[Rfam]
RNA: MicA sRNA
Organism: Pantoea sp. Nvir
RNA sequence: AAAAGAAGCGCUUUUGUUAUCAUCUCUGACAAUGGGGGAUGUUGUUUGGCUACAUUGAUGUAGUCCCUUU
Dot-bracket structure: ....................((((.((.......)).))))......(((((((....))))))).....